[Rfam]
The record is a 65-nucleotide RNA sequence from Chanos chanos, which matches "Selenocysteine insertion sequence 1" in Rfam.
The source organism's lineage runs through Eukaryota, Gnathostomata, Actinopterygii, Clupeocephala and Chanos.
The family's consensus secondary structure is taken from published work.
For this family Rfam cites "A novel RNA structural motif in the selenocysteine insertion element of eukaryotic selenoprotein mRNAs" (Walczak et al., RNA, 1996).
Rfam's curators write: The incorporation of selenocysteine into a protein sequence is directed by an in-frame UGA codon (usually a stop codon) within the coding region of the mRNA. Selenoprotein mRNAs contain a conserved secondary structure in the 3' UTR that is required for the distinction of UGA stop from UGA selenocysteine. The selenocysteine insertion sequence (SECIS) is around 60 nt in length and adopts a hairpin structure which is sufficiently well-defined and conserved to act as a computational screen for selenoprotein genes.
It is annotated as a cis-regulatory element.

RNA sequence: GUGGCUUUAUGAAGGUCUGCACUGAAAACAGUUUGCUGUGAGUGCAGACUGGAUCCCUCUCCCAC
Numbered sequence: 001g002u003g004g005c006u007u008u009a010u011g012a013a014g015g016u017c018u019g020c021a022c023u024g025a026a027a028a029c030a031g032u033u034u035g036c037u038g039u040g041a042g043u044g045c046a047g048a049c050u051g052g053a054u055c056c057c058u059c060u061c062c063c064a065c
Stems, first nucleotide, its partner, number of pairs: 001065004014050010029038003
Gene Ontology term of the family: selenocysteine incorporation.